[Rfam]
Nucleotides: 245
Base pairs, nucleotide, nucleotide: 005102006101007100008099009098010097011096012095013094014093015092016091017090020041021040022039023038026035027034028033045052046051059066060065071084072083073082074081105243106242108240112233113232114231115230116229117228121209122208123207124206125205126204127203128202129201130200131199132197134166135165136164137163141158142157143156144155145154146153170194171193172192175190176189177188178187211221212220213219
Number, partner (000 for none) and nucleotide at each position: 001000g002000a003000g004000u005102a006101a007100g008099u009098u010097g011096a012095u013094g014093c015092a016091g017090c018000a019000a020041g021040c022039u023038u024000a025000a026035g027034u028033c029000a030000u031000u032000a033028g034027a035026c036000g037000u038023a039022g040021g041020c042000g043000u044000a045052g046051c047000a048000a049000a050000a051046g052045c053000g054000a055000g056000u057000c058000u059066u060065c061000a062000c063000a064000g065060g066059g067000c068000u069000a070000a071084g072083g073082g074081g075000c076000c077000u078000u079000g080000u081074c082073c083072c084071c085000a086000a087000u088000u089000a090017g091016u092015u093014g094013c095012a096011u097010c098009a099008a100007c101006u102005u103000u104000a105243c106242c107000c108240g109000a110000a111000a112233c113232c114231g115230g116229g117228u118000g119000a120000u121209c122208u123207a124206g125205c126204u127203a128202u129201g130200a131199g132197c133000a134166g135165g136164u137163u138000g139000a140000a141158a142157g143156g144155g145154g146153g147000g148000u149000a150000a151000c152000a153146c154145u155144u156143u157142c158141u159000g160000g161000a162000g163137g164136a165135c166134c167000g168000a169000a170194c171193c172192c173000g174000u175190g176189u177188c178187u179000g180000u181000g182000g183000c184000a185000a186000u187178a188177g189176g190175c191000a192172g193171g194170g195000a196000u197132g198000a199131c200130u201129u202128g203127u204126g205125g206124c207123u208122a209121g210000g211221g212220g213219u214000g215000a216000a217000a218000a219213g220212c221211c222000a223000a224000u225000c226000g227000a228117a229116c230115u231114c232113g233112g234000a235000g236000a237000u238000a239000g240108c241000u242106g243105g244000u245000u
Background:
Shown here is a 245-nucleotide part of an RNA from Coccomyxa sp. Obi, a member of the family "Archaeal large subunit ribosomal RNA". For this family Rfam cites "The comparative RNA web (CRW) site: an online database of comparative sequence and structure information for ribosomal, intron, and other RNAs" (Cannone et al., BMC Bioinformatics, 2002). The organism belongs to Coccomyxa, within Eukaryota.